This 87-nucleotide sequence from Domibacillus mangrovi belongs to the Rfam family "c-di-GMP-I riboswitch aptamer". The match comes from Rfam's covariance-model search (85 bits). NCBI's taxonomy places the organism under Bacteria, Bacillati, Bacillota, Caryophanales, Domibacillus.
[Rfam]
RNA sequence: UUUCGAUACUAGCAAACUUAUUGAAAAAUAAGGACGCAAAGCCACGGGCCUAAUGUGUUUUUUUACUAUGGCAGCCGGGUUUCCGAA
Numbered sequence: 001u002u003u004c005g006a007u008a009c010u011a012g013c014a015a016a017c018u019u020a021u022u023g024a025a026a027a028a029u030a031a032g033g034a035c036g037c038a039a040a041g042c043c044a045c046g047g048g049c050c051u052a053a054u055g056u057g058u059u060u061u062u063u064u065a066c067u068a069u070g071g072c073a074g075c076c077g078g079g080u081u082u083c084c085g086a087a
Base pairs, nucleotide, nucleotide: 012037013036017032018031019030020029021028022027040081041080042079043078045077046076047075048072049071050070055066056065057064